[Rfam]
The record is a 519-nucleotide RNA from Corynebacterium urogenitale, which matches "Bacterial RNase P class A" in Rfam.
RNA sequence: UGAGAAGACCGGGUGGUCGCGGCGCGCGGAACCGGUCCCGUCUGUGGGGCCAGGCCGGGUGCGGAGGAAAGUCCGGACUCCACAGAGCGCGGUGGUUGCUAACGGCAACCCAGGGUGAUCUGCGGGAUAGUGCCACAGAAAAUAACCGCCUACGGCCUUCGGGCCACGUGGGUAAGGGUGAAACGGUGCGGUAAGAGCGCACCAGCAUGCCAGGUGACUGGCGUGGCUAGGUAAACCCCACCGGGAGCAAGGUCAAGUGAUGGCACGGCUCUGCGCUGGCUAAGGGCUCGCUUCGGCGAGGCUAUGUCGGUGUGGUGUGCCGUGCUGUCGAGUUCUAGAGCUGCUCGCUUGCUAGUGAACAGGUAGACCGCUUGAGGCGCCCAGUGAUGGUGCGUCCAGAUGGAUGGCCACCUCGCAGCCAGUGUGCGGACCGCUGUCAGUGUGGGCUUCGGCCCCGUUUGGUGGUGGUUAGUGUGCCUGGCUGUAGGACAAAAUCCGGCUCACAGGUUUUCUCGGCUU
Numbered sequence: 001u002g003a004g005a006a007g008a009c010c011g012g013g014u015g016g017u018c019g020c021g022g023c024g025c026g027c028g029g030a031a032c033c034g035g036u037c038c039c040g041u042c043u044g045u046g047g048g049g050c051c052a053g054g055c056c057g058g059g060u061g062c063g064g065a066g067g068a069a070a071g072u073c074c075g076g077a078c079u080c081c082a083c084a085g086a087g088c089g090c091g092g093u094g095g096u097u098g099c100u101a102a103c104g105g106c107a108a109c110c111c112a113g114g115g116u117g118a119u120c121u122g123c124g125g126g127a128u129a130g131u132g133c134c135a136c137a138g139a140a141a142a143u144a145a146c147c148g149c150c151u152a153c154g155g156c157c158u159u160c161g162g163g164c165c166a167c168g169u170g171g172g173u174a175a176g177g178g179u180g181a182a183a184c185g186g187u188g189c190g191g192u193a194a195g196a197g198c199g200c201a202c203c204a205g206c207a208u209g210c211c212a213g214g215u216g217a218c219u220g221g222c223g224u225g226g227c228u229a230g231g232u233a234a235a236c237c238c239c240a241c242c243g244g245g246a247g248c249a250a251g252g253u254c255a256a257g258u259g260a261u262g263g264c265a266c267g268g269c270u271c272u273g274c275g276c277u278g279g280c281u282a283a284g285g286g287c288u289c290g291c292u293u294c295g296g297c298g299a300g301g302c303u304a305u306g307u308c309g310g311u312g313u314g315g316u317g318u319g320c321c322g323u324g325c326u327g328u329c330g331a332g333u334u335c336u337a338g339a340g341c342u343g344c345u346c347g348c349u350u351g352c353u354a355g356u357g358a359a360c361a362g363g364u365a366g367a368c369c370g371c372u373u374g375a376g377g378c379g380c381c382c383a384g385u386g387a388u389g390g391u392g393c394g395u396c397c398a399g400a401u402g403g404a405u406g407g408c409c410a411c412c413u414c415g416c417a418g419c420c421a422g423u424g425u426g427c428g429g430a431c432c433g434c435u436g437u438c439a440g441u442g443u444g445g446g447c448u449u450c451g452g453c454c455c456c457g458u459u460u461g462g463u464g465g466u467g468g469u470u471a472g473u474g475u476g477c478c479u480g481g482c483u484g485u486a487g488g489a490c491a492a493a494a495u496c497c498g499g500c501u502c503a504c505a506g507g508u509u510u511u512c513u514c515g516g517c518u519u
Base pairs, nucleotide, nucleotide: 001515002514003513004512005511006510007509008508009507010506011504012412013411014410015409016408017407018406020064022062023061024060025059027057028056070501071500073499074498075497076496077495078247079246080245081244085346086345087344088343090243091242092241093240094239095109096108097107098106099105110124111122112121113120114119125238126237130236131235132232133231134230146177147176148173149172150171151170152169155164156163157162185203186202187201188200189199190198205227206225207224208223209222210221211220212219213218251369252368253367254366264357265356266355338350339349340348341347376396377395378394379393380392381390382389383388

NCBI's taxonomy places the organism under Bacteria, Bacillati, Actinomycetota, Actinomycetes, Corynebacterium. The match comes from Rfam's covariance-model search (240 bits).